[Rfam]
RNA sequence: AGACACCCUUAAGGGGCAAGAUUGCUUCAGUGGGGCUUUGGUGCUCACUGAGUCUGCCCUCUGAUUGUGUCCCU
Numbered sequence: 001a002g003a004c005a006c007c008c009u010u011a012a013g014g015g016g017c018a019a020g021a022u023u024g025c026u027u028c029a030g031u032g033g034g035g036c037u038u039u040g041g042u043g044c045u046c047a048c049u050g051a052g053u054c055u056g057c058c059c060u061c062u063g064a065u066u067g068u069g070u071c072c073c074u
Stems, first nucleotide, its partner, number of pairs: 002071005009064003013060006020054003027051008035042002
A member of the RNA family "mir-9229 microRNA precursor family" from Myotis myotis, 74 nucleotides long. The family has 7 seed sequences and 27,225 matches in Rfam 15.1. Rfam links the family to the GO terms miRNA-mediated post-transcriptional gene silencing and RISC complex. The source organism's lineage runs through Eukaryota, Eumetazoa, Mammalia, Eutheria and Myotis.